Shown here is a 106-nucleotide RNA sequence from Catenulispora acidiphila, a member of the family "ZMP/ZTP riboswitch aptamer (pfl RNA motif)". It scores 54 bits against the family's covariance model. The source organism's lineage runs through Bacteria, Catenulisporales, Catenulisporaceae, Catenulispora and Catenulispora acidiphila.
[Rfam]
RNA sequence: UUUGUCCAUCGCGACUGGCGCAGAACGCGUGUUUUCGCACGCGGAGGUGGAACGAACCACCGGGAAGCGAUCGAUGUAGCGGGCACCGCGCGCCUGGGUGUCCUUC
Numbered sequence: 001u002u003u004g005u006c007c008a009u010c011g012c013g014a015c016u017g018g019c020g021c022a023g024a025a026c027g028c029g030u031g032u033u034u035u036c037g038c039a040c041g042c043g044g045a046g047g048u049g050g051a052a053c054g055a056a057c058c059a060c061c062g063g064g065a066a067g068c069g070a071u072c073g074a075u076g077u078a079g080c081g082g083g084c085a086c087c088g089c090g091c092g093c094c095u096g097g098g099u100g101u102c103c104u105u106c
Base pairs, nucleotide, nucleotide: 003076004075005074006073008071009070010069011068012067015064016063017094018093019092020091021090047060048059049058050057083101084100085099086098087097